[Rfam]
RNA sequence: GGAUUUCCUGCUUCAACAGUGCUUGAGUGGAAUCC
Numbered sequence: 001g002g003a004u005u006u007c008c009u010g011c012u013u014c015a016a017c018a019g020u021g022c023u024u025g026a027g028u029g030g031a032a033u034c035c
Stems, first nucleotide, its partner, number of pairs: 001035005007030002010028001012027005017021001
RNA: Iron response element I